[Rfam]
The family of this 132-nucleotide sequence from Thermosediminibacter oceani is "FMN riboswitch aptamer (RFN element)". Rfam links the family to the GO term FMN binding.
RNA sequence: UCAAGCCUUCGGGGCAGGGUGAAAUUCCCGACCGGCGGUGAGCCUUUAUGGCGAGCCCGCGAGCCCUUUAAAGGGGUUGACCCGGUGAAAAUCCGGGGCCGACGGUUAAAGUCCGGAUGGGAGAAGGCGAUA
Numbered sequence: 001u002c003a004a005g006c007c008u009u010c011g012g013g014g015c016a017g018g019g020u021g022a023a024a025u026u027c028c029c030g031a032c033c034g035g036c037g038g039u040g041a042g043c044c045u046u047u048a049u050g051g052c053g054a055g056c057c058c059g060c061g062a063g064c065c066c067u068u069u070a071a072a073g074g075g076g077u078u079g080a081c082c083c084g085g086u087g088a089a090a091a092u093c094c095g096g097g098g099c100c101g102a103c104g105g106u107u108a109a110a111g112u113c114c115g116g117a118u119g120g121g122a123g124a125a126g127g128c129g130a131u132a
Base pairs, nucleotide, nucleotide: 005128006127007126008125009124010123017029018028019027031112032111033101034100035060036059037058038057055099056098063077064076065075081097082096083095084094085093103115104114105113